[Rfam]
Shown here is a 78-nucleotide RNA from Laticauda laticaudata, a member of the family "Mammalian CPEB3 ribozyme". On this family, see Salehi-Ashtiani et al., Science 2006: "A genomewide search for ribozymes reveals an HDV-like sequence in the human CPEB3 gene". NCBI's taxonomy places the organism under Eukaryota, Metazoa, Craniata, Toxicofera, Laticauda. A search with the family's covariance model found it, with a score of 56 bits. Rfam links the family to the GO term RNA nuclease activity.
RNA sequence: AUAAGGCCUAGUGGGGCCAUAGAGGAGCGUUCACGUCGCGGCCCCUGUCACGGUAUCUGUUUACCUGCGAAUCCUCUA
Numbered sequence: 001a002u003a004a005g006g007c008c009u010a011g012u013g014g015g016g017c018c019a020u021a022g023a024g025g026a027g028c029g030u031u032c033a034c035g036u037c038g039c040g041g042c043c044c045c046u047g048u049c050a051c052g053g054u055a056u057c058u059g060u061u062u063a064c065c066u067g068c069g070a071a072u073c074c075u076c077u078a
Base pairs, nucleotide, nucleotide: 013045014044015043016042017041018040022077023075024074025073026072027039028038029037049067050066052065053064054063055062